[Rfam]
RNA sequence: AUCGGGCAUGUGGCGAAUGCCUGUAGCCGCUGCUUCUGGCGGGAUUUAUUGCACGGAUGGCUAGGACGGCGUGGUGUCGGGGAUCAAACCCUGCUGCUCGCCUUUGCGUAGACGGCUGUGUCCGUUGAAGUGCGGUGUCGGCAUUGGCUCGUUCGCGAAAGCGUCUAUGACGGGUCAAGGCUGUUAAAGAGGCGGGGAAUGCGUGAGGCUGGUUAACAGAGCAGCGAAAACCGUCCGCACCGACCACGGUCAACGGGUGGCACGCCCGAGUGGGGCGCCUUGCUUGCAAGGUCUCUGGAGUUGUGGUGGCUCCGAU
Numbered sequence: 001a002u003c004g005g006g007c008a009u010g011u012g013g014c015g016a017a018u019g020c021c022u023g024u025a026g027c028c029g030c031u032g033c034u035u036c037u038g039g040c041g042g043g044a045u046u047u048a049u050u051g052c053a054c055g056g057a058u059g060g061c062u063a064g065g066a067c068g069g070c071g072u073g074g075u076g077u078c079g080g081g082g083a084u085c086a087a088a089c090c091c092u093g094c095u096g097c098u099c100g101c102c103u104u105u106g107c108g109u110a111g112a113c114g115g116c117u118g119u120g121u122c123c124g125u126u127g128a129a130g131u132g133c134g135g136u137g138u139c140g141g142c143a144u145u146g147g148c149u150c151g152u153u154c155g156c157g158a159a160a161g162c163g164u165c166u167a168u169g170a171c172g173g174g175u176c177a178a179g180g181c182u183g184u185u186a187a188a189g190a191g192g193c194g195g196g197g198a199a200u201g202c203g204u205g206a207g208g209c210u211g212g213u214u215a216a217c218a219g220a221g222c223a224g225c226g227a228a229a230a231c232c233g234u235c236c237g238c239a240c241c242g243a244c245c246a247c248g249g250u251c252a253a254c255g256g257g258u259g260g261c262a263c264g265c266c267c268g269a270g271u272g273g274g275g276c277g278c279c280u281u282g283c284u285u286g287c288a289a290g291g292u293c294u295c296u297g298g299a300g301u302u303g304u305g306g307u308g309g310c311u312c313c314g315a316u
Stems, first nucleotide, its partner, number of pairs: 001045003004022006027042003057316002060313001063311002067308002070305001074301002077298006088292003092288003099277003103274005109268001114266003118263004122256007130247003133242006139183004144178010155164003184188001191235005200228001202226003209219003
Overview: The record is a 316-nucleotide RNA sequence from Thamnocephalis sphaerospora, which matches "Metazoan signal recognition particle RNA" in Rfam. The signal recognition particle (SRP) is a universally conserved ribonucleoprotein. It is involved in the co-translational targeting of proteins to membranes. The match comes from Rfam's covariance-model search (80 bits). NCBI's taxonomy places the organism under Eukaryota, Opisthokonta, Zoopagomycota, Zoopagomycetes, Thamnocephalis. The base pairs follow the family's consensus structure, which is taken from published work.